[Rfam]
RNA sequence: ACAAUUUGAUUGCAGACAGGGCGUGGGGAAACCACUUGUGGCGGCCAGCCGGCCGCCUUGGGGUGAAGCCACUUGCAGUGGCCGGGCGCUCCCUUCUCAGCCCGAACCCGACAGCUAACCUCACCGGCGGAACAACGAGAGGACUU
Numbered sequence: 001a002c003a004a005u006u007u008g009a010u011u012g013c014a015g016a017c018a019g020g021g022c023g024u025g026g027g028g029a030a031a032c033c034a035c036u037u038g039u040g041g042c043g044g045c046c047a048g049c050c051g052g053c054c055g056c057c058u059u060g061g062g063g064u065g066a067a068g069c070c071a072c073u074u075g076c077a078g079u080g081g082c083c084g085g086g087c088g089c090u091c092c093c094u095u096c097u098c099a100g101c102c103c104g105a106a107c108c109c110g111a112c113a114g115c116u117a118a119c120c121u122c123a124c125c126g127g128c129g130g131a132a133c134a135a136c137g138a139g140a141g142g143a144c145u146u
Base pairs, nucleotide, nucleotide: 023124024123025122026121027120028119033060034059061109062108063107069081070080071079072078084103085102086101087100

c-di-AMP riboswitch aptamer (ydaO/yuaA leader): a 146-nucleotide sequence from Corynebacterium canis. The pairing is the family consensus, mapped onto this sequence. About the family: This family represents a conserved RNA structure found upstream of the ydaO and yuaA genes in Bacillus subtilis and related genes in other bacteria. The ydaO/yuaA element is thought to act as a genetic 'off' switch for the ydaO and yuaA genes in its native state. It is believed that the element may be triggered during osmotic shock leading to activation of ydaO, a predicted amino acid transporter gene, and members of the yuaA-yubG operon which code for KtrA and KtrB K+ transporters. Taxonomically the source falls in Corynebacterium (Bacteria, Bacillati, Actinomycetota, Mycobacteriales). A search with the family's covariance model found it, with a score of 61 bits.